[Rfam]
RNA sequence: CCCUUCUGCAUUAACAGACGUCUGCUAUAAUUGUGCGAUCCAGUUCUUCUGUUUCAUGCAAUAAUGCUAGCAGACUAUUGCGUAGAAGGAGAUUAUUGUGCACUGUACUGAAAAUGAGAUGUGGCCGAACCUCUUUCUUAAUGUUCAUUGGCCUCUGUCUCAAGGUACAGUGCCACAAUU
Dot-bracket structure: ...................((.(((((..((((...(.....(.....).....)......))))..))))).))........................((((((((..............(.(..(((..............)))..).)..............)))))))).......
A member of the RNA family "Small nucleolar RNA SNORA81" from Anabas testudineus, 180 nucleotides long. On this family, see Gu et al., Nucleic Acids Res 2005: "A novel experimental approach for systematic identification of box H/ACA snoRNAs from eukaryotes". Taxonomically the source falls in Anabas (Eukaryota, Vertebrata, Gnathostomata, Eurypterygia). By type it is an H/ACA-box small nucleolar RNA. Gene Ontology terms of the family: RNA processing and nucleolus.